[Rfam]
This 81-nucleotide RNA sequence from Mobilisporobacter senegalensis belongs to the Rfam family "ZMP/ZTP riboswitch aptamer (pfl RNA motif)".

RNA sequence: UCAAAUCUGUACAACUGGCGGAUAAAUGGGAUAACCCAUAGGGAGUACAGAUAUUAUAAGCCGACCGCCUGGGCAAACCGU
Numbered sequence: 001u002c003a004a005a006u007c008u009g010u011a012c013a014a015c016u017g018g019c020g021g022a023u024a025a026a027u028g029g030g031a032u033a034a035c036c037c038a039u040a041g042g043g044a045g046u047a048c049a050g051a052u053a054u055u056a057u058a059a060g061c062c063g064a065c066c067g068c069c070u071g072g073g074c075a076a077a078c079c080g081u
Stems, first nucleotide, its partner, number of pairs: 003054001005052008015042002017069005026039004060074003
The organism belongs to Mobilisporobacter, within Bacteria.